This 75-nucleotide RNA sequence from Nothoprocta ornata belongs to the Rfam family "Small nucleolar RNA SNORD19". The match comes from Rfam's covariance-model search (39 bits). The pairing is the family consensus, mapped onto this sequence. The family's RNA type in Rfam is C/D-box small nucleolar RNA. On this family, see Huttenhofer et al., EMBO J 2001: "RNomics: an experimental approach that identifies 201 candidates for novel, small, non-messenger RNAs in mouse".
RNA sequence: GAGAAAUGAAGAUUUUCUUCCAGUUCUUAUUAUUGCAGUGAAGACUUCAGAUCCAACUCUGAUCUCGCUCUUGUU
Numbered sequence: 001g002a003g004a005a006a007u008g009a010a011g012a013u014u015u016u017c018u019u020c021c022a023g024u025u026c027u028u029a030u031u032a033u034u035g036c037a038g039u040g041a042a043g044a045c046u047u048c049a050g051a052u053c054c055a056a057c058u059c060u061g062a063u064c065u066c067g068c069u070c071u072u073g074u075u
Stems, first nucleotide, its partner, number of pairs: 001066004